[Rfam]
RNA sequence: CGCGUUUUUCGCCCAGGCGGAGCUCGACCGCCGACUCAAGUCCUGAUCGACUUCAUCGACCGGCACCGAGAGGUCUACGGGGUCGAGCCGAUCUGCAAGGUCUUGCGGAUUGCCCCG
Numbered sequence: 001c002g003c004g005u006u007u008u009u010c011g012c013c014c015a016g017g018c019g020g021a022g023c024u025c026g027a028c029c030g031c032c033g034a035c036u037c038a039a040g041u042c043c044u045g046a047u048c049g050a051c052u053u054c055a056u057c058g059a060c061c062g063g064c065a066c067c068g069a070g071a072g073g074u075c076u077a078c079g080g081g082g083u084c085g086a087g088c089c090g091a092u093c094u095g096c097a098a099g100g101u102c103u104u105g106c107g108g109a110u111u112g113c114c115c116c117g
Stems, first nucleotide, its partner, number of pairs: 016032005078117005089112002092109007
ALIL pseudoknot: a 117-nucleotide RNA sequence from Parasulfuritortus cantonensis.
The family's consensus secondary structure is taken from published work.
A search with the family's covariance model found it, with a score of 114 bits.